[Rfam]
RNA sequence: CUGGGAAGGACUCGUAGAACCAUCAUCUUCAACACAAGCACAGCAGGCACAAUGUGCCUGCUGUGCUUGUGUUGAAGAUGAUGGUUCU
Numbered sequence: 001c002u003g004g005g006a007a008g009g010a011c012u013c014g015u016a017g018a019a020c021c022a023u024c025a026u027c028u029u030c031a032a033c034a035c036a037a038g039c040a041c042a043g044c045a046g047g048c049a050c051a052a053u054g055u056g057c058c059u060g061c062u063g064u065g066c067u068u069g070u071g072u073u074g075a076a077g078a079u080g081a082u083g084g085u086u087c088u
Base pairs, nucleotide, nucleotide: 001014003012004011016088017087018086020084021083022082033071034070035069036068037067038066039065040064041063042062043061046058047057048056
The record is an 88-nucleotide RNA from Tachuris rubrigastra, which matches "Flavivirus 3' UTR cis-acting replication element (CRE)" in Rfam.
The source organism's lineage runs through Eukaryota, Teleostomi, Coelurosauria, Telluraves and Tachuris.
The family's RNA type in Rfam is cis-regulatory element.
The match comes from Rfam's covariance-model search (43 bits).
The literature on the family includes a 1998 paper in J Virol by Zeng et al., "Identification of specific nucleotide sequences within the conserved 3'-SL in the dengue type 2 virus genome required for replication".